[Rfam]
RNA: manA RNA
RNA sequence: UGUUGGACGCAACGUUAGGGAGUGACUGAAUAAUCUUUCUGGCAAACGCUGGAUAAGGUGAUGAGACACAGGUGGUGCUGCACCGAGAGGUGAAUCGACUUACCAGUCGGGUCUCAGGCAAGGACGUAAAAUUUACUACUGUAGUAAUGCCCGUUCUUUGUUGGUAUACAGGAAUCCAACCUCCCCCCUU
Numbered sequence: 001u002g003u004u005g006g007a008c009g010c011a012a013c014g015u016u017a018g019g020g021a022g023u024g025a026c027u028g029a030a031u032a033a034u035c036u037u038u039c040u041g042g043c044a045a046a047c048g049c050u051g052g053a054u055a056a057g058g059u060g061a062u063g064a065g066a067c068a069c070a071g072g073u074g075g076u077g078c079u080g081c082a083c084c085g086a087g088a089g090g091u092g093a094a095u096c097g098a099c100u101u102a103c104c105a106g107u108c109g110g111g112u113c114u115c116a117g118g119c120a121a122g123g124a125c126g127u128a129a130a131a132u133u134u135a136c137u138a139c140u141g142u143a144g145u146a147a148u149g150c151c152c153g154u155u156c157u158u159u160g161u162u163g164g165u166a167u168a169c170a171g172g173a174a175u176c177c178a179a180c181c182u183c184c185c186c187c188c189u190u
Stems, first nucleotide, its partner, number of pairs: 001014005018185005025059002038053006062116006069080003073105004081092004095110005120158007133147004139171004160180005